A member of the RNA family "Bacterial RNase P class A" from Cribrihabitans marinus, 403 nucleotides long. Taxonomically the source falls in Cribrihabitans (Bacteria, Pseudomonadati, Alphaproteobacteria, Paracoccaceae). By type it is a ribozyme. The base pairs follow the family's consensus structure, which is taken from published work.
[Rfam]
RNA sequence: GCGGAGGGCCGGAUGGCCGCGGCAGCGAUGCCGAGGAAAGUCCGGACUCCACAAGGCAACGGUGCCGGGUAACGCCCGGGCGGGGAAACCCGACGGAAAGCGCCACAGAAAACAGACUACCGCCGCUUGCGGCGGAAAAGGUGAAACGGUGGGGUAAGAGCCCACCGCGUCCCCGGCAACGGGGGCGGCCUGGCAAGCCCCACCGGGAGCAAUGCCGAAUAGGGUCCCCGCGCGGGCCGGUCCCGGGUCUGACCCGGGAUACCGCCGCUAGGUGCGUCUUGGCCGAGAGGGACCGGGUUGGCAGCUUGAGCCGCGGAGCGAUCCGCGGCCCAGAGGAAUGGUCGUCGAACCCCGGAUCACGGUCCGGGGGGAACAGAAUCCGGCUUACAGGCCCUCCGCGCGU
Numbered sequence: 001g002c003g004g005a006g007g008g009c010c011g012g013a014u015g016g017c018c019g020c021g022g023c024a025g026c027g028a029u030g031c032c033g034a035g036g037a038a039a040g041u042c043c044g045g046a047c048u049c050c051a052c053a054a055g056g057c058a059a060c061g062g063u064g065c066c067g068g069g070u071a072a073c074g075c076c077c078g079g080g081c082g083g084g085g086a087a088a089c090c091c092g093a094c095g096g097a098a099a100g101c102g103c104c105a106c107a108g109a110a111a112a113c114a115g116a117c118u119a120c121c122g123c124c125g126c127u128u129g130c131g132g133c134g135g136a137a138a139a140g141g142u143g144a145a146a147c148g149g150u151g152g153g154g155u156a157a158g159a160g161c162c163c164a165c166c167g168c169g170u171c172c173c174c175g176g177c178a179a180c181g182g183g184g185g186c187g188g189c190c191u192g193g194c195a196a197g198c199c200c201c202a203c204c205g206g207g208a209g210c211a212a213u214g215c216c217g218a219a220u221a222g223g224g225u226c227c228c229c230g231c232g233c234g235g236g237c238c239g240g241u242c243c244c245g246g247g248u249c250u251g252a253c254c255c256g257g258g259a260u261a262c263c264g265c266c267g268c269u270a271g272g273u274g275c276g277u278c279u280u281g282g283c284c285g286a287g288a289g290g291g292a293c294c295g296g297g298u299u300g301g302c303a304g305c306u307u308g309a310g311c312c313g314c315g316g317a318g319c320g321a322u323c324c325g326c327g328g329c330c331c332a333g334a335g336g337a338a339u340g341g342u343c344g345u346c347g348a349a350c351c352c353c354g355g356a357u358c359a360c361g362g363u364c365c366g367g368g369g370g371g372a373a374c375a376g377a378a379u380c381c382g383g384c385u386u387a388c389a390g391g392c393c394c395u396c397c398g399c400g401c402g403u
Base pairs, nucleotide, nucleotide: 001399002398003397004396005395006394007393008392009391010390011388012346013345014344015343016342017341018340020033021032022031023030024029038386039385040384042383043382044381045380046379047209048208049207050206060205061204062203063202064201065079066078067077068076069075080094081092082091083090084089095200096199100198101197102194103193104192117140118139120135121134122133123132124131125130148166149165150164151163152162153161167189168187169186170185171184172183173182174181175180213303214302215301216300223294224293225292226291227290228289278287279286280285310329311328312327313326314325315324316323317322